[Rfam]
RNA sequence: CCGGUGGGCACGCCGAACCGCUGAGGCAUCGCCGAGGCGGACCGGGGACCCACGUCCCUCGGGGUGAAUCCUGCACACGCAGGUAGGGCAGCUUCCCGUCCGAACCCGUCAGCUAACCCGGUAGGCAGUCAGGAAGAACGG
Numbered sequence: 001c002c003g004g005u006g007g008g009c010a011c012g013c014c015g016a017a018c019c020g021c022u023g024a025g026g027c028a029u030c031g032c033c034g035a036g037g038c039g040g041a042c043c044g045g046g047g048a049c050c051c052a053c054g055u056c057c058c059u060c061g062g063g064g065u066g067a068a069u070c071c072u073g074c075a076c077a078c079g080c081a082g083g084u085a086g087g088g089c090a091g092c093u094u095c096c097c098g099u100c101c102g103a104a105c106c107c108g109u110c111a112g113c114u115a116a117c118c119c120g121g122u123a124g125g126c127a128g129u130c131a132g133g134a135a136g137a138a139c140g141g
Stems, first nucleotide, its partner, number of pairs: 012126003018040005041122006051061001062107003070083004086101004
RNA: c-di-AMP riboswitch aptamer (ydaO/yuaA leader)
Organism: Modestobacter italicus